Notes
A member of the RNA family "ZMP/ZTP riboswitch aptamer (pfl RNA motif)" from a Parvibaculaceae bacterium, 87 nucleotides long. NCBI's taxonomy places the organism under Bacteria, Pseudomonadati, Pseudomonadota, Hyphomicrobiales, Parvibaculaceae. On this family, see Tran et al., Cell Chem Biol 2020: "Parallel Discovery Strategies Provide a Basis for Riboswitch Ligand Design".

RNA sequence: CCGGCCUUGCGUAACUGGCGAGACGGGAUGGGUAUAACCAUCGGGGAGCGCGGGGGGUCAUUCGAGCCGCGCGCCUGGGCAUUCAAG
Number, nucleotide and partner (000 for none) at each position: 001c000002c000003g000004g000005c055006c054007u053008u052009g051010c050011g049012u048013a000014a000015c045016u044017g075018g074019c073020g072021a000022g000023a000024c000025g000026g000027g000028a041029u040030g039031g038032g000033u000034a000035u000036a000037a000038c031039c030040a029041u028042c000043g000044g016045g015046g000047a000048g012049c011050g010051c009052g008053g007054g006055g005056g000057g000058u000059c000060a000061u000062u000063c000064g082065a000066g080067c079068c078069g000070c000071g000072c020073g019074c018075c017076u000077g000078g068079g067080c066081a000082u064083u000084c000085a000086a000087g000